[Rfam]
RNA sequence: GUAAAUGCAGUGAUUGGGAAAAGUAGCGCAUCACAACGCCACAGAGAGCGCGGCAGAGCUGGGAGCCGUGCGCGGACGGUGCGUGAACGAACACCCGGGAGCAGCAAACUGAACAGGGCGCAGUGAGAAAAAUGCGCCGCCAGUAGGUGCGCCGCAGGCUCAGCGUUAACGGAGCAGCGCUUUUACUUGAGCGCGUGAGCGACCGGACACUUCCGGUAAUUCAGGUGGCACCGCGGACAUUACAAGACAGCUUGUUCGCCCUGAAC
Numbered sequence: 001g002u003a004a005a006u007g008c009a010g011u012g013a014u015u016g017g018g019a020a021a022a023g024u025a026g027c028g029c030a031u032c033a034c035a036a037c038g039c040c041a042c043a044g045a046g047a048g049c050g051c052g053g054c055a056g057a058g059c060u061g062g063g064a065g066c067c068g069u070g071c072g073c074g075g076a077c078g079g080u081g082c083g084u085g086a087a088c089g090a091a092c093a094c095c096c097g098g099g100a101g102c103a104g105c106a107a108a109c110u111g112a113a114c115a116g117g118g119c120g121c122a123g124u125g126a127g128a129a130a131a132a133u134g135c136g137c138c139g140c141c142a143g144u145a146g147g148u149g150c151g152c153c154g155c156a157g158g159c160u161c162a163g164c165g166u167u168a169a170c171g172g173a174g175c176a177g178c179g180c181u182u183u184u185a186c187u188u189g190a191g192c193g194c195g196u197g198a199g200c201g202a203c204c205g206g207a208c209a210c211u212u213c214c215g216g217u218a219a220u221u222c223a224g225g226u227g228g229c230a231c232c233g234c235g236g237a238c239a240u241u242a243c244a245a246g247a248c249a250g251c252u253u254g255u256u257c258g259c260c261c262u263g264a265a266c
Base pairs, nucleotide, nucleotide: 007102008101015097016096017095018094026084027083028082029081030080031079037074038073039072048071049070050069051068052067053066104152105151108148109147110146153165154164155163202217203216204215205214206213207212222263223262224261225260233259234258235257236256237255238254239253